[Rfam]
RNA sequence: AUUUUAGGUAGAGGUUGCGAAUAACAAGAGUAACUCAAUAGAGCUGGACAGAGCGCUGAAGUUGAGAGAAAGGGAAGUUCGCCGAAAUGAAGAUUAAGUCAAAAAUCUUUGUUGGGCAUGUGAAAAAUAUUCAUAUGACUGUCAUCAGAUAGAAUCUGGUGUUGUGCUAUCCAAAAU
Numbered sequence: 001a002u003u004u005u006a007g008g009u010a011g012a013g014g015u016u017g018c019g020a021a022u023a024a025c026a027a028g029a030g031u032a033a034c035u036c037a038a039u040a041g042a043g044c045u046g047g048a049c050a051g052a053g054c055g056c057u058g059a060a061g062u063u064g065a066g067a068g069a070a071a072g073g074g075a076a077g078u079u080c081g082c083c084g085a086a087a088u089g090a091a092g093a094u095u096a097a098g099u100c101a102a103a104a105a106u107c108u109u110u111g112u113u114g115g116g117c118a119u120g121u122g123a124a125a126a127a128u129a130u131u132c133a134u135a136u137g138a139c140u141g142u143c144a145u146c147a148g149a150u151a152g153a154a155u156c157u158g159g160u161g162u163u164g165u166g167c168u169a170u171c172c173a174a175a176a177u
Stems, first nucleotide, its partner, number of pairs: 007171005017082006025074001034066006086113010114140002117137008143161006